[Rfam]
RNA sequence: CGAGCAGGGAUAGUGUGUAUCGACGUAGUGCAAAAUAAAAAUGCACUCUGAUCGAAAGAGUUCCCUGCAAAAUCAAUAUUAGGGGAAGGUGGGCAGUUGUUCUUCAUUCCACCAUUGAUUUUUCAACAAUCAUCUUCCCCACAUUC
Numbered sequence: 001c002g003a004g005c006a007g008g009g010a011u012a013g014u015g016u017g018u019a020u021c022g023a024c025g026u027a028g029u030g031c032a033a034a035a036u037a038a039a040a041a042u043g044c045a046c047u048c049u050g051a052u053c054g055a056a057a058g059a060g061u062u063c064c065c066u067g068c069a070a071a072a073u074c075a076a077u078a079u080u081a082g083g084g085g086a087a088g089g090u091g092g093g094c095a096g097u098u099g100u101u102c103u104u105c106a107u108u109c110c111a112c113c114a115u116u117g118a119u120u121u122u123u124c125a126a127c128a129a130u131c132a133u134c135u136u137c138c139c140c141a142c143a144u145u146c
Stems, first nucleotide, its partner, number of pairs: 004068007015046006082140011096127004

Shown here is a 146-nucleotide RNA sequence from Corchorus olitorius, a member of the family "small nucleolar RNA snoR135". The family's consensus secondary structure was predicted with RNAalifold. A reference for the family is Chen and Wu (2009), "Mining small RNA sequencing data: a new approach to identify small nucleolar RNAs in Arabidopsis", Nucleic Acids Res. The family's RNA type in Rfam is H/ACA-box small nucleolar RNA.